[Rfam]
RNA sequence: AUAUUUUCUGGCGAUGGGGCUCGCCUUAAUUUUGCUGAAAAAGCUGAUAGCUCCUACCCGUAA
Numbered sequence: 001a002u003a004u005u006u007u008c009u010g011g012c013g014a015u016g017g018g019g020c021u022c023g024c025c026u027u028a029a030u031u032u033u034g035c036u037g038a039a040a041a042a043g044c045u046g047a048u049a050g051c052u053c054c055u056a057c058c059c060g061u062a063a
Base pairs, nucleotide, nucleotide: 010025011024012023013022016054017053018052019051020050021049034044035043036042

The record is a 63-nucleotide RNA from Pelotomaculum thermopropionicum, which matches "Fluoride riboswitch aptamer (crcB RNA motif)" in Rfam. The family's consensus secondary structure is taken from published work. The source organism's lineage runs through Bacteria, Bacillati, Clostridia, Desulfotomaculaceae and Pelotomaculum thermopropionicum. It is one of the family's seed sequences.